The record is a 132-nucleotide RNA sequence from Paractinoplanes ferrugineus, which matches "c-di-AMP riboswitch aptamer (ydaO/yuaA leader)" in Rfam.
It scores 89 bits against the family's covariance model.
Rfam's curators write: This family represents a conserved RNA structure found upstream of the ydaO and yuaA genes in Bacillus subtilis and related genes in other bacteria. The ydaO/yuaA element is thought to act as a genetic 'off' switch for the ydaO and yuaA genes in its native state. It is believed that the element may be triggered during osmotic shock leading to activation of ydaO, a predicted amino acid transporter gene, and members of the yuaA-yubG operon which code for KtrA and KtrB K+ transporters.
RNA sequence: GACGAACCACCGCCUAAUCACCGACAGGUGAACCGGGGACCCGAGCAGUUGGGGUGAAGCCGCUUCGUGCGGCCGGGCGCGCUUCCCGCCCGAACCCGUCAGCUAACCCGGUCGGCGGCGAGGGAAGAAAGG
Numbered sequence: 001g002a003c004g005a006a007c008c009a010c011c012g013c014c015u016a017a018u019c020a021c022c023g024a025c026a027g028g029u030g031a032a033c034c035g036g037g038g039a040c041c042c043g044a045g046c047a048g049u050u051g052g053g054g055u056g057a058a059g060c061c062g063c064u065u066c067g068u069g070c071g072g073c074c075g076g077g078c079g080c081g082c083u084u085c086c087c088g089c090c091c092g093a094a095c096c097c098g099u100c101a102g103c104u105a106a107c108c109c110g111g112u113c114g115g116c117g118g119c120g121a122g123g124g125a126a127g128a129a130a131g132g
Base pairs, nucleotide, nucleotide: 011117012116013115014114018031019030020029032112033111034110035109036108037107042051043050052097053096054095060072061071062070063069075091076090077089078088